[Rfam]
RNA sequence: UUGGAUUGCGUGUUAUUAUGCUCCCUCUUCUGAAGGCAUUGAGGACGCUCGCUGGCAGAAUCGAACAAAUUAUUAAAGCCACCACUGAGUAA
Numbered sequence: 001u002u003g004g005a006u007u008g009c010g011u012g013u014u015a016u017u018a019u020g021c022u023c024c025c026u027c028u029u030c031u032g033a034a035g036g037c038a039u040u041g042a043g044g045a046c047g048c049u050c051g052c053u054g055g056c057a058g059a060a061u062c063g064a065a066c067a068a069a070u071u072a073u074u075a076a077a078g079c080c081a082c083c084a085c086u087g088a089g090u091a092a
Stems, first nucleotide, its partner, number of pairs: 006092004
RNA: Small nucleolar RNA R30/Z108